Nucleotides: 083
Stems, first nucleotide, its partner, number of pairs: 012072009021062003025059003030054002
Number, partner (000 for none) and nucleotide at each position: 001000u002000c003000c004000c005000c006000c007000a008000c009000a010000u011000u012072u013071c014070c015069u016068u017067a018066u019065c020064a021062u022061u023060c024000u025059u026058u027057c028000a029000g030054c031053c032000a033000g034000c035000u036000u037000u038000c039000u040000u041000c042000u043000c044000g045000c046000a047000a048000g049000u050000g051000u052000u053031g054030g055000a056000c057027g058026g059025a060023g061022a062021a063000c064020u065019g066018a067017u068016a069015a070014g071013g072012g073000a074000a075000u076000g077000u078000g079000g080000g081000u082000g083000a
This 83-nucleotide RNA sequence from Pantherophis guttatus belongs to the Rfam family "mir-184 microRNA precursor family". A reference for the family is Chen et al. (2005), "The developmental miRNA profiles of zebrafish as determined by small RNA cloning", Genes Dev. The base pairs follow the family's consensus structure, which was predicted with PFOLD. Rfam links the family to the GO terms gene silencing by miRNA and RISC complex.